[Rfam]
RNA sequence: UACCCAGUUUUGGGGACCUUGGUACAGGCAGGCCGGGGAUUCCCCUUCUUUACACUCGGGACUCAUACCGCUCAGAGCGACGAGUCCUACAAGCUUUGGGGACCCCGGUACAGGCAGGCCGGGAAUCCUCAUCUUUAAUCCGGGAUUCACUCCUCCCAGAGUGAUCGAUCCCAGCCGUUUUGGGGACCUUGGUACAGGCAGGCCGAGAAUCCCUUCUUUACACCCGGGGC
Numbered sequence: 001u002a003c004c005c006a007g008u009u010u011u012g013g014g015g016a017c018c019u020u021g022g023u024a025c026a027g028g029c030a031g032g033c034c035g036g037g038g039a040u041u042c043c044c045c046u047u048c049u050u051u052a053c054a055c056u057c058g059g060g061a062c063u064c065a066u067a068c069c070g071c072u073c074a075g076a077g078c079g080a081c082g083a084g085u086c087c088u089a090c091a092a093g094c095u096u097u098g099g100g101g102a103c104c105c106c107g108g109u110a111c112a113g114g115c116a117g118g119c120c121g122g123g124a125a126u127c128c129u130c131a132u133c134u135u136u137a138a139u140c141c142g143g144g145a146u147u148c149a150c151u152c153c154u155c156c157c158a159g160a161g162u163g164a165u166c167g168a169u170c171c172c173a174g175c176c177g178u179u180u181u182g183g184g185g186a187c188c189u190u191g192g193u194a195c196a197g198g199c200a201g202g203c204c205g206a207g208a209a210u211c212c213c214u215u216c217u218u219u220a221c222a223c224c225c226g227g228g229g230c
Base pairs, nucleotide, nucleotide: 012045013044014043015042016041017038018037019036020035021034022033023032058088059087060086061085062084069079070078071077098130099129100128101127102126104123105122106121107120108119109118142172143171144170145169146168149165150163152161182214183213184212185211186210188207189206190205191204192203193202
Nitrogen regulated small RNA: a 230-nucleotide sequence from Pseudomonas asplenii.
Found in the opportunistic pathogen Pseudomonas aeruginosa PAO1. Its transcription is induced during nitrogen limitation by the NtrB/C two-component system (an important regulator of nitrogen assimilation and swarming motility) together with the alternative sigma factor RpoN (a global regulator involved in nitrogen metabolism).
The literature on the family includes a 2014 paper in Environ Microbiol by Wenner et al., "NrsZ: a novel, processed, nitrogen-dependent, small non-coding RNA that regulates Pseudomonas aeruginosa PAO1 virulence".
The pairing is the family consensus, mapped onto this sequence.
Taxonomically the source falls in Pseudomonas (Bacteria, Gammaproteobacteria, Pseudomonadales, Pseudomonadaceae).